[Rfam]
RNA sequence: GGCACAAACUUGAAGUAGAGUAGUUUAGCAUGGUCAGCCGAUCCUACUUAUUUGUUCUACUUCAAAUUUGGUCCC
Numbered sequence: 001g002g003c004a005c006a007a008a009c010u011u012g013a014a015g016u017a018g019a020g021u022a023g024u025u026u027a028g029c030a031u032g033g034u035c036a037g038c039c040g041a042u043c044c045u046a047c048u049u050a051u052u053u054g055u056u057c058u059a060c061u062u063c064a065a066a067u068u069u070g071g072u073c074c075c
Stems, first nucleotide, its partner, number of pairs: 001074002005070004011064013025050001027048002030045001032043004
Rfam assigns this 75-nucleotide sequence from Haemonchus placei to the family "mir-5928 microRNA precursor family". The family's consensus secondary structure was predicted with RNAalifold. It scores 64 bits against the family's covariance model. The source organism's lineage runs through Eukaryota, Metazoa, Eumetazoa, Rhabditomorpha and Haemonchus.